[Rfam]
The family of this 73-nucleotide sequence from Allacma fusca is "mir-71 microRNA precursor family". A reference for the family is Yu et al. (2008), "The silkworm (Bombyx mori) microRNAs and their expressions in multiple developmental stages", PLoS One. Rfam links the family to the GO terms miRNA-mediated post-transcriptional gene silencing and RISC complex. Lineage of the source: Eukaryota > Protostomia > Arthropoda > Collembola > Allacma. Pairs were carried over by alignment from the consensus structure, which was predicted with RNAalifold.
RNA sequence: GAAAGCUGAAAGACAUGGGUAGUGAGAUGGUUACUCUCACAAUUCAUCUCACUACCUUGUCUUUCACGCCUUA
Number, nucleotide and partner (000 for none) at each position: 001g000002a000003a000004a000005g000006c000007u000008g065009a064010a063011a062012g061013a060014c059015a058016u000017g057018g056019g055020u000021a053022g052023u051024g050025a049026g048027a047028u046029g045030g000031u000032u000033a000034c000035u000036c000037u000038c000039a000040c000041a000042a000043u000044u000045c029046a028047u027048c026049u025050c024051a023052c022053u021054a000055c019056c018057u017058u015059g014060u013061c012062u011063u010064u009065c008066a000067c000068g000069c000070c000071u000072u000073a000